[Rfam]
About this RNA: ROOL RNA: a 587-nucleotide sequence. The base pairs follow the family's consensus structure, which is taken from published work. Rfam's curators write: Firmicutes, Fusobacteria (1 example), Tenericutes (1 example).
RNA sequence: CUUUGAGAAAGGAUUUAUGUUGACCGCUGUGAAGAGGGAUUACAUCUCUGCAGCGAAGUUAGCCAUAAUAAUGCGAUAAAGCCAUGGGAUACUGUGGCCCAAGCUAAGACUUAUAUUGAAAAAUAUGAGUUUCCCUGAUACCAUCAGGCUAGGCUAACUGUGCAACAUGCUAUGGUACACAAAAACAACUUAGCUGGUUCGUCCGACAAGAAGCUCUAAUCGUAAGAUUAUCUCACCAGUGGUAUUAAGCCUGAGAAACUUGAUGCCCGGUAACUCACAGGAAGGAUUGUGUCUUGAAGCUACGGAAGUAGUGUAUAAGAACCAGGAAUAAGGUAUGAGUAGCCGUGUGACACACAAGCACAAAAGGUUAUAACGUUCGACUCGUUACUCGAAAAAGUUAAUUUGCUGACGUUCGGUGAAAGUUGAAGAGCACUAAAUCUCUUCUGUUGUUCGUUGGGGUUCGCCCCUUCAAUUUGAGAAGCCUCUGGGUCGCUCCCUCUGGUUCAGCCUCAAGUUAAUAUGUGUGAAUAUUGUGGAAUAGUAAAUGUUGUAAGAUGAAUAAAAGUCUCAUAUAGAUCAUUUCUCAA
Number, nucleotide and partner (000 for none) at each position: 001c000002u000003u000004u000005g000006a000007g584008a000009a582010a581011g580012g000013a000014u000015u576016u575017a000018u000019g000020u000021u000022g000023a000024c000025c055026g054027c053028u052029g051030u000031g000032a000033a000034g000035a000036g048037g047038g046039a045040u000041u000042a000043c000044a000045u039046c038047u037048c036049u000050g000051c029052a028053g027054c026055g025056a000057a159058g158059u157060u156061a155062g154063c000064c000065a000066u000067a000068a000069u000070a000071a000072u000073g000074c000075g104076a000077u102078a000079a000080a000081g098082c097083c096084a095085u094086g093087g092088g000089a000090u000091a000092c087093u086094g085095u084096g083097g082098c081099c000100c000101a000102a077103g000104c075105u000106a000107a000108g131109a130110c129111u128112u127113a126114u125115a124116u123117u122118g000119a000120a000121a000122a117123a116124u115125a114126u113127g112128a111129g110130u109131u108132u000133c000134c148135c147136u146137g145138a144139u000140a000141c000142c000143a000144u138145c137146a136147g135148g134149c000150u000151a000152g000153g000154c062155u061156a060157a059158c058159u057160g000161u000162g000163c000164a000165a000166c000167a000168u000169g000170c000171u541172a000173u000174g000175g000176u000177a000178c000179a000180c000181a000182a532183a000184a000185a531186c000187a000188a000189c332190u331191u330192a000193g000194c325195u324196g323197g322198u321199u320200c000201g287202u286203c285204c284205g000206a000207c000208a000209a000210g000211a000212a000213g000214c000215u000216c000217u000218a229219a228220u227221c226222g000223u000224a000225a000226g221227a220228u219229u218230a000231u000232c000233u000234c000235a271236c270237c269238a000239g267240u000241g000242g266243u265244a264245u263246u262247a261248a260249g000250c000251c000252u277253g276254a275255g274256a000257a000258a000259c000260u248261u247262g246263a245264u244265g243266c242267c239268c000269g237270g236271u235272a000273a000274c255275u254276c253277a252278c000279a000280g000281g000282a000283a000284g204285g203286a202287u201288u000289g353290u352291g351292u350293c349294u000295u000296g000297a000298a000299g312300c311301u310302a309303c308304g000305g000306a000307a000308g303309u302310a301311g300312u299313g000314u000315a000316u000317a000318a000319g000320a199321a198322c197323c196324a195325g194326g000327a000328a000329u000330a191331a190332g189333g000334u000335a000336u422337g000338a000339g000340u000341a000342g417343c416344c415345g414346u000347g412348u000349g293350a292351c291352a290353c289354a000355c000356a000357a000358g000359c000360a000361c000362a000363a000364a000365a000366g000367g000368u000369u000370a000371u000372a000373a000374c000375g000376u000377u000378c000379g000380a000381c000382u000383c000384g000385u000386u000387a000388c000389u000390c000391g000392a000393a000394a000395a000396a000397g000398u000399u000400a000401a000402u000403u000404u000405g508406c507407u506408g505409a000410c000411g000412u347413u000414c345415g344416g343417u342418g000419a000420a000421a000422g336423u000424u000425g523426a000427a000428g443429a000430g440431c000432a000433c000434u000435a000436a000437a000438u000439c000440u430441c000442u000443u428444c000445u520446g519447u518448u000449g000450u000451u000452c000453g000454u000455u000456g465457g464458g000459g000460u000461u000462c000463g000464c457465c456466c000467c000468u000469u000470c000471a000472a516473u000474u514475u513476g000477a000478g510479a000480a000481g504482c000483c501484u000485c000486u000487g497488g496489g495490u000491c000492g000493c000494u000495c489496c488497c487498u000499c000500u000501g483502g000503u000504u481505c408506a407507g406508c405509c000510u478511c000512a000513a475514g474515u000516u472517a000518a447519u446520a445521u000522g000523u425524g000525u000526g000527a000528a000529u000530a000531u185532u182533g000534u000535g000536g000537a000538a000539u000540a000541g171542u000543a000544a000545a000546u000547g000548u000549u000550g000551u000552a000553a568554g567555a566556u565557g000558a000559a000560u000561a000562a000563a000564a000565g556566u555567c554568u553569c000570a000571u000572a000573u000574a000575g016576a015577u000578c000579a000580u011581u010582u009583c000584u007585c000586a000587a000